[Rfam]
RNA sequence: GACAAACGAAUAUGCUUACCGUAGACAGUAGGUGCUCGCGUUAGAGCUUAAUUCCCUACCGAGGUGUUAUGAUAUAAGUUCGGUAUUCUUUGCUAGUGAUGUACAAAGAAUUCGUGAAUCAUCAUGCCUUCGCCUUGUCUGCGAAGGCAUUUCGCUUUUAAUGG
Numbered sequence: 001g002a003c004a005a006a007c008g009a010a011u012a013u014g015c016u017u018a019c020c021g022u023a024g025a026c027a028g029u030a031g032g033u034g035c036u037c038g039c040g041u042u043a044g045a046g047c048u049u050a051a052u053u054c055c056c057u058a059c060c061g062a063g064g065u066g067u068u069a070u071g072a073u074a075u076a077a078g079u080u081c082g083g084u085a086u087u088c089u090u091u092g093c094u095a096g097u098g099a100u101g102u103a104c105a106a107a108g109a110a111u112u113c114g115u116g117a118a119u120c121a122u123c124a125u126g127c128c129u130u131c132g133c134c135u136u137g138u139c140u141g142c143g144a145a146g147g148c149a150u151u152u153c154g155c156u157u158u159u160a161a162u163g164g
Stems, first nucleotide, its partner, number of pairs: 028059005034047003125149009
A member of the RNA family "Ribosomal protein L10 leader" from Paenibacillus cremeus, 164 nucleotides long. It scores 67 bits against the family's covariance model.